RNA: Actinobacteria sRNA Ms_IGR-7
RNA sequence: UGACAGAUGCCCUCUCGACCAGGCUGAUGGAAGCUUCGAGAACUCCCAUUUUCCCCGGUCAGAGGGCAUCUUCCUGUCUACCGCGCCGGCGUAACCCGAUGCCUAUCGGUGGAUUCAG
Numbered sequence: 001u002g003a004c005a006g007a008u009g010c011c012c013u014c015u016c017g018a019c020c021a022g023g024c025u026g027a028u029g030g031a032a033g034c035u036u037c038g039a040g041a042a043c044u045c046c047c048a049u050u051u052u053c054c055c056c057g058g059u060c061a062g063a064g065g066g067c068a069u070c071u072u073c074c075u076g077u078c079u080a081c082c083g084c085g086c087c088g089g090c091g092u093a094a095c096c097c098g099a100u101g102c103c104u105a106u107c108g109g110u111g112g113a114u115u116c117a118g
Base pairs, nucleotide, nucleotide: 002073003072005071006070007069008068009067010066011065012064013063014062017060018059020057022055023054026050027049028048030046032044033043101114103112104111105110